Notes:
A member of the RNA family "mir-5928 microRNA precursor family" from Haemonchus placei, 75 nucleotides long. The family has 5 seed sequences and 1,672 matches in Rfam 15.1. It scores 63 bits against the family's covariance model. Rfam links the family to the GO terms RISC complex and miRNA-mediated post-transcriptional gene silencing.
[Rfam]
RNA sequence: GGCCCAAAUCCGGAGUAAGGUAGAUUAAUAAGGUCACCUGGUCCUACUAUUCCACUGUACUUCAGAAUUGGGCUC
Numbered sequence: 001g002g003c004c005c006a007a008a009u010c011c012g013g014a015g016u017a018a019g020g021u022a023g024a025u026u027a028a029u030a031a032g033g034u035c036a037c038c039u040g041g042u043c044c045u046a047c048u049a050u051u052c053c054a055c056u057g058u059a060c061u062u063c064a065g066a067a068u069u070g071g072g073c074u075c
Base pairs, nucleotide, nucleotide: 001074002073003072004071005070006069007068009066012063013062014061015060016059017058019056020055021054023052026049027048029046030045032043033042034041035040